[Rfam]
RNA sequence: UGCGAUGAGUCGAGAAGUCAGGCAAUUCUUUGAAUUGUUCCGCGCAAGCGGCUAGUGACAUUUUGGCGUGGGACACAUUUACCUACCGGAUUAUGUAGGGUGUUCGGUUAUCAUACGUUGUGGAGCGU
Numbered sequence: 001u002g003c004g005a006u007g008a009g010u011c012g013a014g015a016a017g018u019c020a021g022g023c024a025a026u027u028c029u030u031u032g033a034a035u036u037g038u039u040c041c042g043c044g045c046a047a048g049c050g051g052c053u054a055g056u057g058a059c060a061u062u063u064u065g066g067c068g069u070g071g072g073a074c075a076c077a078u079u080u081a082c083c084u085a086c087c088g089g090a091u092u093a094u095g096u097a098g099g100g101u102g103u104u105c106g107g108u109u110a111u112c113a114u115a116c117g118u119u120g121u122g123g124a125g126c127g128u
Stems, first nucleotide, its partner, number of pairs: 017059004021039006040051004072104005082099005115128005
Dot-bracket structure: ................((((((((((.......))))))((((....))))....))))............(((((.....(((((........))))))))))..........(((((....)))))